[Rfam]
RNA sequence: AACUGGACUAGGUCGGGCGGUUAGGCCCCGCUCGUCACCCCGAGAUAGUCUUCAGGGGGGACCGAACCCCGGGCUCGUCCGGCAGACCGGCACGGGCCUCGGGAGCCGACGUGGAAGCCUCGUCCGCCGGGGACAGCGGUCCACGACGCCCGCCCGCAGGGGCGGUCCGUCGUGGUUCAUCGACGGUACCGGGUCAGGCGCGGAAGCGAGCAGCCCACCGUCGGACGCCCGUCGCUCGUCGGGUCGCGGGGUGGAGGAGGCAACCGAGACUCCCCGUGUCGGAACGCCGGGCAAAUCCGGCUGUCCGCCA
Number, nucleotide and partner (000 for none) at each position: 001a000002a000003c000004u307005g306006g305007a304008c303009u000010a000011g063012g062013u061014c060015g033016g032017g031018c030019g029020g028021u000022u000023a000024g000025g000026c000027c000028c020029c019030g018031c017032u016033c015034g000035u000036c000037a000038c059039c058040c057041c056042g000043a000044g053045a000046u000047a000048g000049u000050c000051u000052u000053c044054a000055g000056g041057g040058g039059g038060g014061a013062c012063c011064g000065a000066a000067c000068c000069c300070c299071g298072g297073g296074c000075u294076c000077g292078u291079c290080c289081g287082g000083c000084a000085g000086a000087c282088c281089g280090g279091c278092a277093c276094g275095g274096g273097c000098c268099u267100c266101g265102g264103g000104a000105g261106c260107c259108g000109a000110c256111g000112u254113g000114g000115a000116a000117g252118c251119c250120u249121c248122g247123u246124c242125c241126g240127c000128c238129g237130g236131g235132g233133a232134c231135a000136g229137c227138g226139g177140u000141c175142c174143a173144c172145g171146a170147c169148g168149c000150c165151c164152g163153c162154c161155c160156g000157c000158a000159g000160g155161g154162g153163c152164g151165g150166u000167c000168c148169g147170u146171c145172g144173u143174g142175g141176u000177u139178c000179a000180u224181c223182g222183a221184c220185g219186g218187u000188a000189c000190c000191g216192g215193g214194u213195c000196a000197g000198g000199c208200g207201c206202g000203g000204a000205a000206g201207c200208g199209a000210g000211c000212a000213g194214c193215c192216c191217a000218c186219c185220g184221u183222c182223g181224g180225a000226c138227g137228c000229c136230c000231g134232u133233c132234g000235c131236u130237c129238g128239u000240c126241g125242g124243g000244u000245c000246g123247c122248g121249g120250g119251g118252u117253g000254g112255a000256g110257g000258a000259g107260g106261c105262a000263a000264c102265c101266g100267a099268g098269a000270c000271u000272c000273c096274c095275c094276g093277u092278g091279u090280c089281g088282g087283a000284a000285c000286g000287c081288c000289g080290g079291g078292c077293a000294a075295a000296u073297c072298c071299g070300g069301c000302u000303g008304u007305c006306c005307g004308c000309c000310a000

This 310-nucleotide RNA from Halolamina pelagica belongs to the Rfam family "Archaeal signal recognition particle RNA". Its Rfam clan is "SRP clan". The literature on the family includes a 2002 paper in Curr Opin Struct Biol by Wild et al., "Towards the structure of the mammalian signal recognition particle".